[Rfam]
RNA sequence: AGGCAGCCCCUUUGUCCCAGUUAGAAGUGAUAUUGGAGGUGUUGUUUUGCUCGGAGAAUAAAAAUCAAAAGCUUUUGCUCUUCAGAUUUGCUGAGAGAAAAAUUGCUUUCUCUUUGAAGCUGGUCUAGUAGUCCUAAGCACAUU
Numbered sequence: 001a002g003g004c005a006g007c008c009c010c011u012u013u014g015u016c017c018c019a020g021u022u023a024g025a026a027g028u029g030a031u032a033u034u035g036g037a038g039g040u041g042u043u044g045u046u047u048u049g050c051u052c053g054g055a056g057a058a059u060a061a062a063a064a065u066c067a068a069a070a071g072c073u074u075u076u077g078c079u080c081u082u083c084a085g086a087u088u089u090g091c092u093g094a095g096a097g098a099a100a101a102a103u104u105g106c107u108u109u110c111u112c113u114u115u116g117a118a119g120c121u122g123g124u125c126u127a128g129u130a131g132u133c134c135u136a137a138g139c140a141c142a143u144u
Base pairs, nucleotide, nucleotide: 002043003042004041005040007039008038009036010035013032014031015030016029017027072138073137074136077133079131084126085125086124087123088122090120091119092118095112096111097110098109099108100107
The family of this 144-nucleotide RNA from Ananas comosus is "Small nucleolar RNA snoR77". The match comes from Rfam's covariance-model search (99 bits). The family's RNA type in Rfam is H/ACA-box small nucleolar RNA. Gene Ontology terms of the family: RNA processing and nucleolus.